[Rfam]
Notes:
This 90-nucleotide sequence from Salmonella enterica belongs to the Rfam family "CopA-like RNA". The base pairs follow the family's consensus structure, which was predicted with PFOLD. Rfam links the family to the GO term mRNA binding. It is annotated as an antisense RNA. The sequence is in the family's curated seed alignment. On this family, see Gerhart et al., Nucleic Acids Res 1986: "Structural analysis of an RNA molecule involved in replication control of plasmid R1".
RNA sequence: AUAGCCUGAUUGGUGGCUAUACAGUUUAAGUAGGCCCCGUUAAUCUUUCGUUCCCGCCAAGAAAUGAGAAGAUUAUCGGGGUUUUUGCUU
Numbered sequence: 001a002u003a004g005c006c007u008g009a010u011u012g013g014u015g016g017c018u019a020u021a022c023a024g025u026u027u028a029a030g031u032a033g034g035c036c037c038c039g040u041u042a043a044u045c046u047u048u049c050g051u052u053c054c055c056g057c058c059a060a061g062a063a064a065u066g067a068g069a070a071g072a073u074u075a076u077c078g079g080g081g082u083u084u085u086u087g088c089u090u
Stems, first nucleotide, its partner, number of pairs: 001020005028090004032084008041075007